Small nucleolar RNA SNORA65: a 127-nucleotide sequence from Triplophysa rosa. Rfam links the family to the GO terms RNA processing and nucleolus. The source organism's lineage runs through Eukaryota, Opisthokonta, Vertebrata, Clupeocephala and Triplophysa. A search with the family's covariance model found it, with a score of 101 bits. Rfam classes the family as an H/ACA-box small nucleolar RNA.
RNA sequence: CCCGCCACUAUGCUAGUCUGUAAAAGUGACUGUGUAUAAUCCAGUGGAGGCUAAUAGUGACCCAGCUCUAGGAAACAGGACUGCCCUGUUUAAUGGGUAACUCUGUGCCGAAAGGCCUGGAACAUUA
Numbered sequence: 001c002c003c004g005c006c007a008c009u010a011u012g013c014u015a016g017u018c019u020g021u022a023a024a025a026g027u028g029a030c031u032g033u034g035u036a037u038a039a040u041c042c043a044g045u046g047g048a049g050g051c052u053a054a055u056a057g058u059g060a061c062c063c064a065g066c067u068c069u070a071g072g073a074a075a076c077a078g079g080a081c082u083g084c085c086c087u088g089u090u091u092a093a094u095g096g097g098u099a100a101c102u103c104u105g106u107g108c109c110g111a112a113a114g115g116c117c118u119g120g121a122a123c124a125u126u127a
Stems, first nucleotide, its partner, number of pairs: 005047005018032001020030001021028002062120004066115002069112001071109002076105004084097003